[Rfam]
RNA: Small nucleolar RNA psi18S-841/snoR66
Organism: Drosophila erecta
RNA sequence: GGCAAGCGCACUCUGUGUCACAUCGACAUCCAGCCCCAUGUGAUGACAAUUUGUAAGCUUGCUAGAAUAAGGGGGUGCUUCGCUUAUCCAUGUGGCAACUAUCUUCAGCCCAGGUGCCGCAUUGAAUUCGGGCCUCACAUUAG
Numbered sequence: 001g002g003c004a005a006g007c008g009c010a011c012u013c014u015g016u017g018u019c020a021c022a023u024c025g026a027c028a029u030c031c032a033g034c035c036c037c038a039u040g041u042g043a044u045g046a047c048a049a050u051u052u053g054u055a056a057g058c059u060u061g062c063u064a065g066a067a068u069a070a071g072g073g074g075g076u077g078c079u080u081c082g083c084u085u086a087u088c089c090a091u092g093u094g095g096c097a098a099c100u101a102u103c104u105u106c107a108g109c110c111c112a113g114g115u116g117c118c119g120c121a122u123u124g125a126a127u128u129c130g131g132g133c134c135u136c137a138c139a140u141u142a143g
Stems, first nucleotide, its partner, number of pairs: 002062006010054002014048003017044007025037001068142003073136003077133003081130002087125002090122008099113002